[Rfam]
RNA sequence: CCUUCUGUGAUGAUUUUAUCCAAAAUUGACUUUCGUUCUUCUGAGCUUGCUGAAGCCAUAAUAGAGAAACUGAGAAGG
Numbered sequence: 001c002c003u004u005c006u007g008u009g010a011u012g013a014u015u016u017u018a019u020c021c022a023a024a025a026u027u028g029a030c031u032u033u034c035g036u037u038c039u040u041c042u043g044a045g046c047u048u049g050c051u052g053a054a055g056c057c058a059u060a061a062u063a064g065a066g067a068a069a070c071u072g073a074g075a076a077g078g
Base pairs, nucleotide, nucleotide: 001078002077003076005074
Annotation
The family of this 78-nucleotide RNA from Sorex araneus is "Small nucleolar RNA SNORD59". Lineage of the source: Eukaryota > Gnathostomata > Tetrapoda > Eutheria > Sorex. On this family, see Galardi et al., Mol Cell Biol 2002: "Purified box C/D snoRNPs are able to reproduce site-specific 2'-O-methylation of target RNA in vitro". Rfam links the family to the GO terms RNA processing and nucleolus. The family has 24 seed sequences and 1,355 matches in Rfam 15.1. Its Rfam clan is "SNORD59 clan". The sequence is in the family's curated seed alignment.